[Rfam]
RNA: Small nucleolar RNA SNORD103/SNORD85
Organism: Chlamydotis macqueenii
RNA sequence: CCUGGCGAUGACGACACGCUUGCCCUCACUGAAAACAGUGUUUGCUGAUGCGAGCAGCUCUACGCGCUCAGUGGAGCCGAGCCAGA
Numbered sequence: 001c002c003u004g005g006c007g008a009u010g011a012c013g014a015c016a017c018g019c020u021u022g023c024c025c026u027c028a029c030u031g032a033a034a035a036c037a038g039u040g041u042u043u044g045c046u047g048a049u050g051c052g053a054g055c056a057g058c059u060c061u062a063c064g065c066g067c068u069c070a071g072u073g074g075a076g077c078c079g080a081g082c083c084a085g086a
Stems, first nucleotide, its partner, number of pairs: 002085005
Dot-bracket structure: .(((((..........................................................................))))).